[Rfam]
RNA: mir-223 microRNA precursor family
RNA sequence: AUAUUUGUGCAAGGCGUUGCGCUCCGUGUAUUUGACAAGCUGAAUUUGACACUCGUUUGUGGUAGAGUGUCAGUUUGACAAAUACUCUAAGCGAGGCGCUGAUCAAC
Numbered sequence: 001a002u003a004u005u006u007g008u009g010c011a012a013g014g015c016g017u018u019g020c021g022c023u024c025c026g027u028g029u030a031u032u033u034g035a036c037a038a039g040c041u042g043a044a045u046u047u048g049a050c051a052c053u054c055g056u057u058u059g060u061g062g063u064a065g066a067g068u069g070u071c072a073g074u075u076u077g078a079c080a081a082a083u084a085c086u087c088u089a090a091g092c093g094a095g096g097c098g099c100u101g102a103u104c105a106a107c
Stems, first nucleotide, its partner, number of pairs: 020093004026087001028085007036077006048071004053066002